Small nucleolar RNA SNORA5: a 140-nucleotide RNA from Amazona guildingii. It is annotated as an H/ACA-box small nucleolar RNA. NCBI's taxonomy places the organism under Eukaryota, Archosauria, Saurischia, Aves, Amazona. From the family's description: ACA5 is a member of the H/ACA class of snoRNA that guide the sites of modification of uridines to pseudouridines. Clan: SNORA5 clan.
[Rfam]
RNA sequence: UGCAGCCUUGUCAAAUUCAAUCCCUGCUUCCUCCAUAGCAAGGAUUGGCCAAACGGCUGCCACAGCCACUUCUGUGGUCCAUGAGCCCCCCAUCCCCUUCCCCAUGGGACAGUGGGGCCUAAAUCAGGCUAUGGACAUGU
Numbered sequence: 001u002g003c004a005g006c007c008u009u010g011u012c013a014a015a016u017u018c019a020a021u022c023c024c025u026g027c028u029u030c031c032u033c034c035a036u037a038g039c040a041a042g043g044a045u046u047g048g049c050c051a052a053a054c055g056g057c058u059g060c061c062a063c064a065g066c067c068a069c070u071u072c073u074g075u076g077g078u079c080c081a082u083g084a085g086c087c088c089c090c091c092a093u094c095c096c097c098u099u100c101c102c103c104a105u106g107g108g109a110c111a112g113u114g115g116g117g118c119c120u121a122a123a124u125c126a127g128g129c130u131a132u133g134g135a136c137a138u139g140u
Stems, first nucleotide, its partner, number of pairs: 002060004018047006025040004074132006087117002090115004